[Rfam]
RNA sequence: GCUCACGAGAGGCAGCGACAAGCACCUGGCUGGCUGCCCGGCAACCUCAACUCCGUCUGAGGUGCUCCAGGGGAAGAGCUGGCUGGACGGCGCCCGCCGUCCGGCAAGGACGGAGC
Numbered sequence: 001g002c003u004c005a006c007g008a009g010a011g012g013c014a015g016c017g018a019c020a021a022g023c024a025c026c027u028g029g030c031u032g033g034c035u036g037c038c039c040g041g042c043a044a045c046c047u048c049a050a051c052u053c054c055g056u057c058u059g060a061g062g063u064g065c066u067c068c069a070g071g072g073g074a075a076g077a078g079c080u081g082g083c084u085g086g087a088c089g090g091c092g093c094c095c096g097c098c099g100u101c102c103g104g105c106a107a108g109g110a111c112g113g114a115g116c
Stems, first nucleotide, its partner, number of pairs: 001079004009039001011038006021031002040066003045062003082105010
RNA: SAM (S-adenosyl methionine) riboswitch aptamer
Organism: Modestobacter italicus